[Rfam]
RNA: mir-9242 microRNA precursor family
RNA sequence: GGCCUCCCUCUUUGGGGCGAUUGAUCAUGGGACUCCGUGGUCAGUUGCCCAGCAGAGGGUGGCC
Numbered sequence: 001g002g003c004c005u006c007c008c009u010c011u012u013u014g015g016g017g018c019g020a021u022u023g024a025u026c027a028u029g030g031g032a033c034u035c036c037g038u039g040g041u042c043a044g045u046u047g048c049c050c051a052g053c054a055g056a057g058g059g060u061g062g063c064c
Base pairs, nucleotide, nucleotide: 001064002063003062004061006059007058008057009056010055011054013052015050016049017048018047019046020045021044022043023042024041025040026039027038028037029036030035